Overview: Shown here is a 69-nucleotide RNA sequence from Tombusvirus algeriaense, a member of the family "Tombus virus defective interfering (DI) RNA region 3". Rfam describes the family as follows. This family represents region 3 of the defective interfering (DI) RNA element of the Tombus viruses and is found in the 3' UTR. This family has been found to enhance DI RNA accumulation by approximately 10-fold as well as mediating viral replication.
RNA sequence: AGCGAGUAAGACAGACUCUUCAGUCUGAGUUGGUGGAUGUGAGUGUACUUUGUUUGAGCAUACAGGUUA
Numbered sequence: 001a002g003c004g005a006g007u008a009a010g011a012c013a014g015a016c017u018c019u020u021c022a023g024u025c026u027g028a029g030u031u032g033g034u035g036g037a038u039g040u041g042a043g044u045g046u047a048c049u050u051u052g053u054u055u056g057a058g059c060a061u062a063c064a065g066g067u068u069a
Stems, first nucleotide, its partner, number of pairs: 011034002014031005047068001049066004
It is annotated as a cis-regulatory element. The base pairs follow the family's consensus structure, which is taken from published work.